[Rfam]
A member of the RNA family "Bacterial small signal recognition particle RNA" from Plantactinospora soyae, 95 nucleotides long. The signal recognition particle (SRP) is a universally conserved ribonucleoprotein involved in the co-translational targeting of proteins to membranes. The source organism's lineage runs through Bacteria, Bacillati, Actinomycetota, Actinomycetes and Plantactinospora. Clan: SRP clan.

RNA sequence: AGCACCCCCCGUGCGGCGCCCAUCUCGUGAACCUCCCCAGGGCCGGAAGGCAGCAAGGAUAAGCGAGCUCUGGCGGGUGCACGGGGGGCCUUGUU
Numbered sequence: 001a002g003c004a005c006c007c008c009c010c011g012u013g014c015g016g017c018g019c020c021c022a023u024c025u026c027g028u029g030a031a032c033c034u035c036c037c038c039a040g041g042g043c044c045g046g047a048a049g050g051c052a053g054c055a056a057g058g059a060u061a062a063g064c065g066a067g068c069u070c071u072g073g074c075g076g077g078u079g080c081a082c083g084g085g086g087g088g089c090c091u092u093g094u095u
Stems, first nucleotide, its partner, number of pairs: 005088009014077001017075004024067005034059003042051003